[Rfam]
RNA: tRNA
RNA sequence: AAGCCUGCGGUGUUUGACAUGCCAGAUUGCAAAUCUCGAGAAGCAAACGAAGGUUUGCCGGGCUUC
Numbered sequence: 001a002a003g004c005c006u007g008c009g010g011u012g013u014u015u016g017a018c019a020u021g022c023c024a025g026a027u028u029g030c031a032a033a034u035c036u037c038g039a040g041a042a043g044c045a046a047a048c049g050a051a052g053g054u055u056u057g058c059c060g061g062g063c064u065u066c
Stems, first nucleotide, its partner, number of pairs: 001065007010020004022038001024036003043058004
Dot-bracket structure: (((((((..((((...)))).(.(((.......))).)....((((........))))))))))).